[Rfam]
RNA: Actino-pnp RNA
Organism: Rhodococcus maanshanensis
RNA sequence: GUCGGUCCUCGGUAGUGGUCACUCGGACGCGUCGAUCUCACGACGACGCCCAUCCGGAGGGCUUCGAUCGAUGACCGCC
Numbered sequence: 001g002u003c004g005g006u007c008c009u010c011g012g013u014a015g016u017g018g019u020c021a022c023u024c025g026g027a028c029g030c031g032u033c034g035a036u037c038u039c040a041c042g043a044c045g046a047c048g049c050c051c052a053u054c055c056g057g058a059g060g061g062c063u064u065c066g067a068u069c070g071a072u073g074a075c076c077g078c079c
Stems, first nucleotide, its partner, number of pairs: 001079001003077005009071005017063004023057005029051001